[Rfam]
RNA sequence: GAGUUUGACAUGUGUCCGAGUCAGCGGCCUAGUAAAUUUGUAAGGCAUAAGGAAUCUGAUUGGUGGGAUCCUCCUGAGGGGUUAACCGCCGACCGACCUUGAUCUUCUGAGAAGGGUUCGAGUGUGAGCAUACCUGCUGGGACCCGAAAGAUGGUGAACUAUGCCUGAGCAGGGCGAAGCGAAAGAAUACGCUAGUGGAGGCCCAUUGCGAUACUGACGUGCAAAUCGUUCAUCUGACCUGGGUAUAGGGUAGAAAGAAUAAUUGAACCGUCUAGUAGCUAGUU
Numbered sequence: 001g002a003g004u005u006u007g008a009c010a011u012g013u014g015u016c017c018g019a020g021u022c023a024g025c026g027g028c029c030u031a032g033u034a035a036a037u038u039u040g041u042a043a044g045g046c047a048u049a050a051g052g053a054a055u056c057u058g059a060u061u062g063g064u065g066g067g068a069u070c071c072u073c074c075u076g077a078g079g080g081g082u083u084a085a086c087c088g089c090c091g092a093c094c095g096a097c098c099u100u101g102a103u104c105u106u107c108u109g110a111g112a113a114g115g116g117u118u119c120g121a122g123u124g125u126g127a128g129c130a131u132a133c134c135u136g137c138u139g140g141g142a143c144c145c146g147a148a149a150g151a152u153g154g155u156g157a158a159c160u161a162u163g164c165c166u167g168a169g170c171a172g173g174g175c176g177a178a179g180c181g182a183a184a185g186a187a188u189a190c191g192c193u194a195g196u197g198g199a200g201g202c203c204c205a206u207u208g209c210g211a212u213a214c215u216g217a218c219g220u221g222c223a224a225a226u227c228g229u230u231c232a233u234c235u236g237a238c239c240u241g242g243g244u245a246u247a248g249g250g251u252a253g254a255a256a257g258a259a260u261a262a263u264u265g266a267a268c269c270g271u272c273u274a275g276u277a278g279c280u281a282g283u284u
Stems, first nucleotide, its partner, number of pairs: 005140003009136002012133004017128001020046003025040003030035001050057002062090005070081002092123002094120003097116003103110002143282001146279001150272006159248009169238001170236001172204004179196002182193001185190001208233001210231002213229002216227002250260002
Eukaryotic large subunit ribosomal RNA: a 284-nucleotide part of an RNA from Solanum tuberosum. Lineage of the source: Eukaryota > Viridiplantae > Mesangiospermae > Gunneridae > Solanum.